[Rfam]
RNA sequence: CGACCAUCCAGAGCGGCCGAGAGACCUGGUUCGAUGACGCCGCAGCAACCCGGUGCGCGGGUGCUUCAGCCAGGAUCGAUGGAGA
Dot-bracket structure: ...(((((....(((((...(((..[[[[)))......)))))((((.((((...))..))))))...(]]]]...))))))...
Numbered sequence: 001c002g003a004c005c006a007u008c009c010a011g012a013g014c015g016g017c018c019g020a021g022a023g024a025c026c027u028g029g030u031u032c033g034a035u036g037a038c039g040c041c042g043c044a045g046c047a048a049c050c051c052g053g054u055g056c057g058c059g060g061g062u063g064c065u066u067c068a069g070c071c072a073g074g075a076u077c078g079a080u081g082g083a084g085a
Stems, first nucleotide, its partner, number of pairs: 004082005013043005021032003026073004044065004049061002051057002069077001
A member of the RNA family "SAM riboswitch aptamer (S box leader)" from Actinomyces sp. oral taxon 849, 85 nucleotides long. The SAM riboswitch is found upstream of a number of genes which code for proteins involved in methionine or cysteine biosynthesis in Gram-positive bacteria. The base pairs follow the family's consensus structure, which is taken from published work.